[Rfam]
RNA sequence: UGCUUAUCACCGGGGUGCUGGCAUUAAUAAUGUUAGCUGAGAAAUACCCUUUAAACCUGAUCAGGUUAGUACCUGCGCAAGGGAGAGUGUUGCUUCAACCUAA
Number, nucleotide and partner (000 for none) at each position: 001u000002g000003c000004u000005u000006a091007u000008c089009a088010c087011c000012g049013g048014g047015g000016u044017g037018c036019u035020g034021g033022c032023a031024u030025u000026a000027a000028u000029a000030a024031u023032g022033u021034u020035a019036g018037c017038u000039g000040a000041g000042a000043a000044a016045u000046a000047c014048c013049c012050u000051u000052u000053a000054a000055a000056c082057c081058u080059g000060a000061u000062c075063a074064g073065g072066u000067u000068a000069g000070u000071a000072c065073c064074u063075g062076c000077g000078c000079a000080a058081g057082g056083g000084a000085g000086a000087g010088u009089g008090u000091u006092g000093c000094u000095u000096c000097a000098a000099c000100c000101u000102a000103a000